[Rfam]
The family of this 168-nucleotide RNA from Clostridium cadaveris is "Lysine riboswitch aptamer".
Pairs were carried over by alignment from the consensus structure, which is taken from published work.
Its family is annotated with lysine biosynthetic process in the Gene Ontology.
The organism belongs to Clostridium, within Bacteria.
RNA sequence: CCUUAGGGUAGAGGAGCUGUAUUUAUAAGUAGCUUUAUUAGCGGGCACGCUGUGAUAUAAAGUGAAAGGAAAUAUAGCCGAAGGAUUAAAUUUGGCACGAAUUAAUCCUGGUUCAUCAUAGAAUAUAUGAUGAACUGUCACUAUUAUUAGUGGGGAGCUACAGAGGUA
Dot-bracket structure: .......((((....(((((((((.......(((((((..................)))))))......)))))))))...(((((((.((((.....)))))))))))(((((((((((.....))))))))))).((((((....))))))....)))).......